[Rfam]
RNA sequence: UGGUCUCUACCAAGGCUGCUAGGAAAAACUAUUUCUGGUAUGCUGUGGACGGGACCAGAAAGUAACGCCUCCAGAUUCUUGUGCCGCUACUCUGGUAGCAUCAAAUCUGUUGGAAACAGUU
Numbered sequence: 001u002g003g004u005c006u007c008u009a010c011c012a013a014g015g016c017u018g019c020u021a022g023g024a025a026a027a028a029c030u031a032u033u034u035c036u037g038g039u040a041u042g043c044u045g046u047g048g049a050c051g052g053g054a055c056c057a058g059a060a061a062g063u064a065a066c067g068c069c070u071c072c073a074g075a076u077u078c079u080u081g082u083g084c085c086g087c088u089a090c091u092c093u094g095g096u097a098g099c100a101u102c103a104a105a106u107c108u109g110u111u112g113g114a115a116a117c118a119g120u121u
Stems, first nucleotide, its partner, number of pairs: 003055005010048003029042001070114004074107004086099002
RNA: Small nucleolar RNA SNORA32
Organism: Varanus komodoensis